[Rfam]
RNA sequence: UUUUGAAAUGAUGAGAUUCAUCUUUCGGGUCUGAAAUUAACCUGAAGACAAUAUCCCAGCGUUCUGAUUAAAG
Numbered sequence: 001u002u003u004u005g006a007a008a009u010g011a012u013g014a015g016a017u018u019c020a021u022c023u024u025u026c027g028g029g030u031c032u033g034a035a036a037u038u039a040a041c042c043u044g045a046a047g048a049c050a051a052u053a054u055c056c057c058a059g060c061g062u063u064c065u066g067a068u069u070a071a072a073g
Base pairs, nucleotide, nucleotide: 001073002072003071004070005069006068
Small nucleolar RNA SNORD2: a 73-nucleotide RNA from Psylliodes chrysocephalus. NCBI's taxonomy places the organism under Eukaryota, Opisthokonta, Pancrustacea, Aparaglossata, Psylliodes. Rfam classes the family as a C/D-box small nucleolar RNA. Pairs were carried over by alignment from the consensus structure, which was predicted with WAR.